[Rfam]
This 84-nucleotide RNA sequence from Argiope bruennichi belongs to the Rfam family "HDV ribozyme from F. prausnitzii".

RNA sequence: GGGGAACGAAAGUCGUCCACCUCCACGUGGUGUUCCCUGGGCAACGAUGCAGUUCUUUGAAACUGCAUUGGCUAAGAGGCUACU
Numbered sequence: 001g002g003g004g005a006a007c008g009a010a011a012g013u014c015g016u017c018c019a020c021c022u023c024c025a026c027g028u029g030g031u032g033u034u035c036c037c038u039g040g041g042c043a044a045c046g047a048u049g050c051a052g053u054u055c056u057u058u059g060a061a062a063c064u065g066c067a068u069u070g071g072c073u074a075a076g077a078g079g080c081u082a083c084u
Stems, first nucleotide, its partner, number of pairs: 001038007019031003045070010
A search with the family's covariance model found it, with a score of 48 bits. Rfam links the family to the GO term catalytic activity. The organism belongs to Argiope, within Eukaryota. For this family Rfam cites "Widespread occurrence of self-cleaving ribozymes" (Webb et al., Science, 2009).